[Rfam]
Nucleotides: 105
Base pairs, nucleotide, nucleotide: 001105002104003103004102005101006100007099008098009097010096012094013093014092015091016090017089018088019087020086021085022084023083024082025081027079028078029077030076031075032074033073034072035071036070037069038068040066041065045064046063047062048061049060050059051058
Number, partner (000 for none) and nucleotide at each position: 001105u002104u003103a004102u005101a006100u007099a008098u009097g010096u011000a012094u013093a014092u015091g016090u017089a018088a019087u020086u021085g022084c023083g024082g025081g026000g027079u028078u029077c030076u031075a032074a033073g034072c035071u036070u037069u038068a039000c040066g041065g042000u043000a044000a045064g046063a047062a048061a049060c050059u051058u052000u053000c054000g055000g056000u057000u058051g059050g060049g061048u062047u063046u064045c065041c066040c067000a068038u069037a070036a071035a072034g073033u074032u075031u076030a077029g078028a079027a080000a081025c082024u083023u084022g085021c086020a087019a088018u089017u090016a091015u092014a093013u094012a095000c096010g097009c098008a099007u100006a101005u102004a103003u104002a105001a